This 46-nucleotide RNA from Polypterus senegalus belongs to the Rfam family "Histone 3' UTR stem-loop". The source organism's lineage runs through Eukaryota, Opisthokonta, Eumetazoa, Polypteridae and Polypterus.

RNA sequence: CAAAAGGCUCUUUUCAGAGCCACCACAAGCUCUAUUCGAAGAGAUA
Numbered sequence: 001c002a003a004a005a006g007g008c009u010c011u012u013u014u015c016a017g018a019g020c021c022a023c024c025a026c027a028a029g030c031u032c033u034a035u036u037c038g039a040a041g042a043g044a045u046a
Stems, first nucleotide, its partner, number of pairs: 006021006

About the family: The mRNAs of metazoan histone genes lack a poly-A tail. 3' end processing occurs at a site between a highly conserved stem-loop (modelled by this family) and a purine rich region around 20 nts downstream (the histone downstream element, or HDE). The stem-loop is bound by a 31 kDa stem-loop binding protein (SLBP - also termed the histone hairpin binding protein, or HBP). Together with U7 snRNA binding of the HDE, SLBP binding nucleate s the formation of the processing complex. The histone 3' UTR stem-loop is also involved in nucleocytoplasmic transport of the mRNA, and in stability regulation and translation efficiency in the cytoplasm.